[Rfam]
RNA: CyVA-1 RNA
RNA sequence: GCGCUGGUAGAAGGCUUUACCGUUGUAGUUCUUUGCUGCUUCUGCAAGGAGAGUGACGUCACAGAAGUAGACAGUGC
Number, nucleotide and partner (000 for none) at each position: 001g077002c076003g075004c074005u073006g072007g000008u000009a032010g031011a030012a029013g000014g000015c000016u000017u000018u000019a000020c000021c000022g000023u000024u000025g000026u000027a000028g000029u012030u011031c010032u009033u000034u000035g000036c000037u069038g068039c067040u066041u065042c064043u063044g062045c000046a000047a000048g000049g000050a000051g000052a000053g000054u000055g000056a000057c000058g000059u000060c000061a000062c044063a043064g042065a041066a040067g039068u038069a037070g000071a000072c006073a005074g004075u003076g002077c001